[Rfam]
RNA sequence: GAGAACCUUUUGAAUCAAGUAGUGGAGUGAUUUAAAAGGUUCUC
Numbered sequence: 001g002a003g004a005a006c007c008u009u010u011u012g013a014a015u016c017a018a019g020u021a022g023u024g025g026a027g028u029g030a031u032u033u034a035a036a037a038g039g040u041u042c043u044c
Base pairs, nucleotide, nucleotide: 001044002043003042004041005040006039007038008037009036010035011034012033013032014031015030016029017028
A member of the RNA family "Plastid-ccsA-ndhD-1 3UTR RNA" from Acer yangbiense, 44 nucleotides long. The source organism's lineage runs through Eukaryota, Streptophyta, rosids, malvids and Acer. The match comes from Rfam's covariance-model search (52 bits). Rfam's curators write: Plastid-ccsA-ndhD-1 is a non-coding RNA (ncRNA) recognised in plastids. It was found in the three prime untranslated region (3UTR) of ccsA and ndhD genes, its 3UTR location suggests a role in transcript maturation. Rfam 15.1 lists 1,322 matches to the family in 557 species. Pairs were carried over by alignment from the consensus structure, which was predicted with LocARNA. For this family Rfam cites "Surprising features of plastid ndhD transcripts: addition of non-encoded nucleotides and polysome association of mRNAs with an unedited start codon" (Zandueta-Criado and Bock, Nucleic Acids Res, 2004). The family is grouped with related families in Rfam's "Plastid-ccsA_ndhD 3UTR RNA clan".